[Rfam]
RNA sequence: AAAUUCUCCAGGAUUUCUCGACCUCGGUUGUUUUAUCUGGUAGUUUGCGCUAAUCUUCGCUUUGCGUAGGGAAUUUCUCUCCUUAAUACAUUUCUGAGUUAAGGGGUUUGAAGGUUGGGUCUAUCUUUUGAGUUUAUCUCACUAGAGGAUAAAUUGUAACUUCCAACAAAUAAGCGAUAUG
Numbered sequence: 001a002a003a004u005u006c007u008c009c010a011g012g013a014u015u016u017c018u019c020g021a022c023c024u025c026g027g028u029u030g031u032u033u034u035a036u037c038u039g040g041u042a043g044u045u046u047g048c049g050c051u052a053a054u055c056u057u058c059g060c061u062u063u064g065c066g067u068a069g070g071g072a073a074u075u076u077c078u079c080u081c082c083u084u085a086a087u088a089c090a091u092u093u094c095u096g097a098g099u100u101a102a103g104g105g106g107u108u109u110g111a112a113g114g115u116u117g118g119g120u121c122u123a124u125c126u127u128u129u130g131a132g133u134u135u136a137u138c139u140c141a142c143u144a145g146a147g148g149a150u151a152a153a154u155u156g157u158a159a160c161u162u163c164c165a166a167c168a169a170a171u172a173a174g175c176g177a178u179a180u181g
Base pairs, nucleotide, nucleotide: 001076002075003074004073005072006071007070008069011038012037013036014035046068047067048066049065050064079106080105081104082103083102114167115166116165117164118163120149121148122147125132126131
A member of the RNA family "Tombusvirus 5' UTR" from Tombusvirus cynarae, 181 nucleotides long. The sequence is in the family's curated seed alignment. Rfam describes the family as follows. Tomato bushy stunt virus is the prototype member of the Tombusviridae family. In addition to viral proteins p33 and the RNA-dependent RNA polymerase p92, and unknown host factors, RNA signals within the UTRs are necessary for genome replication. 2 RNA domains in the 5' UTR have been reported, a 5' T-shaped domain (TSD) followed by a stem-loop (SL5) and a downstream domain (DSD). The source organism's lineage runs through Viruses, Orthornavirae, Tolucaviricetes, Tombusvirus and Tombusvirus cynarae. Pairs were carried over by alignment from the consensus structure, which is taken from published work.